U7 small nuclear RNA: a 62-nucleotide RNA from Cnephaeus nilssonii. A search with the family's covariance model found it, with a score of 54 bits. The base pairs follow the family's consensus structure, which was predicted with PFOLD.
RNA sequence: UAGUGCCUAAGCUCCUUUUGAAUUUGUCCAGCAGGUCUUCCAGUUUUUACUGGAAGGUCCUA
Numbered sequence: 001u002a003g004u005g006c007c008u009a010a011g012c013u014c015c016u017u018u019u020g021a022a023u024u025u026g027u028c029c030a031g032c033a034g035g036u037c038u039u040c041c042a043g044u045u046u047u048u049a050c051u052g053g054a055a056g057g058u059c060c061u062a
Stems, first nucleotide, its partner, number of pairs: 034059011